[Rfam]
RNA sequence: ACCGCACUGGCAGUGUGGUUAGCUGGUUGUGUAAUGAAAAACCAACAGCCAGUAACGACACUGCUCCUGCGUA
Numbered sequence: 001a002c003c004g005c006a007c008u009g010g011c012a013g014u015g016u017g018g019u020u021a022g023c024u025g026g027u028u029g030u031g032u033a034a035u036g037a038a039a040a041a042c043c044a045a046c047a048g049c050c051a052g053u054a055a056c057g058a059c060a061c062u063g064c065u066c067c068u069g070c071g072u073a
Base pairs, nucleotide, nucleotide: 003071004070005069006068009065010064012062013061014060015059016058018056019055020054021053024051025050026049027048028047029046030045
RNA: mir-34 microRNA precursor family
Organism: Danaus plexippus